[Rfam]
The family of this 83-nucleotide RNA sequence from Notothenia coriiceps is "Small nucleolar RNA SNORD11B". It is annotated as a C/D-box small nucleolar RNA. The match comes from Rfam's covariance-model search (57 bits).
RNA sequence: GCCAAGCUGUGAUGAUGACGACAUAUUGUCGAUUUCCUGAUCAUGACUGAUGUUUUUAAGUCACUACCUCAUCUGAGCUUGUG
Numbered sequence: 001g002c003c004a005a006g007c008u009g010u011g012a013u014g015a016u017g018a019c020g021a022c023a024u025a026u027u028g029u030c031g032a033u034u035u036c037c038u039g040a041u042c043a044u045g046a047c048u049g050a051u052g053u054u055u056u057u058a059a060g061u062c063a064c065u066a067c068c069u070c071a072u073c074u075g076a077g078c079u080u081g082u083g
Base pairs, nucleotide, nucleotide: 003081004080005079006078007077
Rfam links the family to the GO terms nucleolus and RNA processing. The family's consensus secondary structure was predicted with WAR. A reference for the family is Yang et al. (2006), "snoSeeker: an advanced computational package for screening of guide and orphan snoRNA genes in the human genome", Nucleic Acids Res.